[Rfam]
RNA sequence: UUGACCCGUCGCGACUGGCGUAUGAGAUGGGCCACCAUCGGGGAGCGACAGUGCAUCCUCGUUCUUGAGGCGGAUUCGGCCGCACGCCUGGGCCGAAACG
Numbered sequence: 001u002u003g004a005c006c007c008g009u010c011g012c013g014a015c016u017g018g019c020g021u022a023u024g025a026g027a028u029g030g031g032c033c034a035c036c037a038u039c040g041g042g043g044a045g046c047g048a049c050a051g052u053g054c055a056u057c058c059u060c061g062u063u064c065u066u067g068a069g070g071c072g073g074a075u076u077c078g079g080c081c082g083c084a085c086g087c088c089u090g091g092g093c094c095g096a097a098a099c100g
Stems, first nucleotide, its partner, number of pairs: 003054001006051001008049005015042002017088005027038004077095005
RNA: ZMP/ZTP riboswitch aptamer (pfl RNA motif)
Organism: Paramicrobacterium humi